A member of the RNA family "Small nucleolar RNA snR60/Z15/Z230/Z193/J17" from Purpureocillium takamizusanense, 102 nucleotides long. Rfam 15.1 lists 3,592 matches to the family in 1,855 species. The literature on the family includes a 2003 paper in Nucleic Acids Res by Chen et al., "The high diversity of snoRNAs in plants: identification and comparative study of 120 snoRNA genes from Oryza sativa". Lineage of the source: Eukaryota > Opisthokonta > Hypocreales > Ophiocordycipitaceae > Purpureocillium. It scores 69 bits against the family's covariance model.

RNA sequence: AAAGAUGUUAUGAUGAUUCACUUCCAAAUGCAUAGUUCAUCUGAAAGAAAUGAUGAAAACAUACCUUCAUAUAGUCUUUCGCUCCCAUCUGAACACAUCUUG
Numbered sequence: 001a002a003a004g005a006u007g008u009u010a011u012g013a014u015g016a017u018u019c020a021c022u023u024c025c026a027a028a029u030g031c032a033u034a035g036u037u038c039a040u041c042u043g044a045a046a047g048a049a050a051u052g053a054u055g056a057a058a059a060c061a062u063a064c065c066u067u068c069a070u071a072u073a074g075u076c077u078u079u080c081g082c083u084c085c086c087a088u089c090u091g092a093a094c095a096c097a098u099c100u101u102g
Base pairs, nucleotide, nucleotide: 004099005098006097007096008095